Histidine operon leader: a 139-nucleotide RNA from Vibrio astriarenae.
A search with the family's covariance model found it, with a score of 77 bits.
About the family: At least 6 amino acid operons are known to be regulated by attenuation. In each a leader sequence of 150-200 bp is found upstream of the first gene in the operon.
On this family, see Kolter and Yanofsky, Annu Rev Genet 1982: "Attenuation in amino acid biosynthetic operons".
[Rfam]
RNA sequence: UCAUCAUCACCAUCACCCAAUAUAGUCUUUCGGGCGAUGUACGCGUACCCGGGAGACAGGUUACUCCCGGUGGUUUGAAUCUCAUACUAACAAGAUUACCAACCCUCGGGAGACCAACAUCUCUCGAGGGUUUUUUGCU
Numbered sequence: 001u002c003a004u005c006a007u008c009a010c011c012a013u014c015a016c017c018c019a020a021u022a023u024a025g026u027c028u029u030u031c032g033g034g035c036g037a038u039g040u041a042c043g044c045g046u047a048c049c050c051g052g053g054a055g056a057c058a059g060g061u062u063a064c065u066c067c068c069g070g071u072g073g074u075u076u077g078a079a080u081c082u083c084a085u086a087c088u089a090a091c092a093a094g095a096u097u098a099c100c101a102a103c104c105c106u107c108g109g110g111a112g113a114c115c116a117a118c119a120u121c122u123c124u125c126g127a128g129g130g131u132u133u134u135u136u137g138c139u
Stems, first nucleotide, its partner, number of pairs: 009046002011039004017034002048070002051068005098135001101132012
By type it is a cis-regulatory leader.